RNA: Streptomyces RNA 5676
RNA sequence: AGAUGAGAGACACCUCGUACCCACGGUCCGCCGCGGGUACCACGGGCCGAGGAUUCCCCACCUCCGGUCCGGCCGUGCAUCGCGCACACCCGGAGACCUGACGCUCCGGGUUCUCCUCACCGACCGGA
Dot-bracket structure: ...((((.((......((((((.(((....))).))))))..((((.((.((.........)).)).))))...((((.....)))).(((((((.(.....))))))))...))))))((....)).
Numbered sequence: 001a002g003a004u005g006a007g008a009g010a011c012a013c014c015u016c017g018u019a020c021c022c023a024c025g026g027u028c029c030g031c032c033g034c035g036g037g038u039a040c041c042a043c044g045g046g047c048c049g050a051g052g053a054u055u056c057c058c059c060a061c062c063u064c065c066g067g068u069c070c071g072g073c074c075g076u077g078c079a080u081c082g083c084g085c086a087c088a089c090c091c092g093g094a095g096a097c098c099u100g101a102c103g104c105u106c107c108g109g110g111u112u113c114u115c116c117u118c119a120c121c122g123a124c125c126g127g128a
Stems, first nucleotide, its partner, number of pairs: 004119004009115002017040006024033003043071004048066002051063002075087004089110007097103001120127002